[Rfam]
RNA sequence: CCGGUUCCGGUUCACGCCCGACAACCGUCGCGCACCAGGCGACGGGGGCGACCCGGCGACC
Number, nucleotide and partner (000 for none) at each position: 001c000002c000003g061004g060005u059006u000007c056008c055009g054010g053011u000012u000013c000014a000015c050016g049017c048018c047019c046020g000021a000022c000023a000024a000025c000026c000027g000028u000029c000030g000031c000032g000033c000034a000035c000036c000037a000038g000039g000040c000041g000042a000043c000044g000045g000046g019047g018048g017049c016050g015051a000052c000053c010054c009055g008056g007057c000058g000059a005060c004061c003
L31-Actinobacteria ribosomal protein leader: a 61-nucleotide RNA sequence from Micromonospora endolithica. The source organism's lineage runs through Bacteria, Bacillati, Actinomycetes, Micromonosporales and Micromonospora. Clan: Ribosomal Protein L31 Leader clan. It scores 51 bits against the family's covariance model.